This 275-nucleotide sequence from Peniophora sp. CBMAI 1063 belongs to the Rfam family "Group I catalytic intron". The source organism's lineage runs through Eukaryota, Opisthokonta, Agaricomycotina, Agaricomycetes and Peniophora. For this family Rfam cites "Self-splicing of group I introns" (Cech, Annu Rev Biochem, 1990). From the family's description: Group I catalytic introns are large self-splicing ribozymes. Rfam links the family to the GO term Group I intron splicing.
RNA sequence: AUAACUUCAUUUUAUUAGACAUCGGGGAAUUUUAGUAGUAAUACUAAUUUAGAAGUUGGCUAUAUGCUGGAACCUCCUUAGAGCUUUCAAUACUUAAGUUUAUUAAGUGAAAAUUUGAAAGAUUGGACAAUCAGCAGGGAAGUUUAUAGUUUAGGUAAAGCAACUGUUUGAAGGCUAUAAACCCCUCAACGACUACACGCCAAUAUCCAGAGCUUUAUAAGUUGUAUUCUUUAUACUGGAUAAAGAUAUAGUCUAAACUUAAUCGAAAGAUUAAG
Numbered sequence: 001a002u003a004a005c006u007u008c009a010u011u012u013u014a015u016u017a018g019a020c021a022u023c024g025g026g027g028a029a030u031u032u033u034a035g036u037a038g039u040a041a042u043a044c045u046a047a048u049u050u051a052g053a054a055g056u057u058g059g060c061u062a063u064a065u066g067c068u069g070g071a072a073c074c075u076c077c078u079u080a081g082a083g084c085u086u087u088c089a090a091u092a093c094u095u096a097a098g099u100u101u102a103u104u105a106a107g108u109g110a111a112a113a114u115u116u117g118a119a120a121g122a123u124u125g126g127a128c129a130a131u132c133a134g135c136a137g138g139g140a141a142g143u144u145u146a147u148a149g150u151u152u153a154g155g156u157a158a159a160g161c162a163a164c165u166g167u168u169u170g171a172a173g174g175c176u177a178u179a180a181a182c183c184c185c186u187c188a189a190c191g192a193c194u195a196c197a198c199g200c201c202a203a204u205a206u207c208c209a210g211a212g213c214u215u216u217a218u219a220a221g222u223u224g225u226a227u228u229c230u231u232u233a234u235a236c237u238g239g240a241u242a243a244a245g246a247u248a249u250a251g252u253c254u255a256a257a258c259u260u261a262a263u264c265g266a267a268a269g270a271u272u273a274a275g
Stems, first nucleotide, its partner, number of pairs: 005027004011021001013019001031043001033041001055204006065136006075127003137185002144177001150172008189254001191253005206240005212234001260273005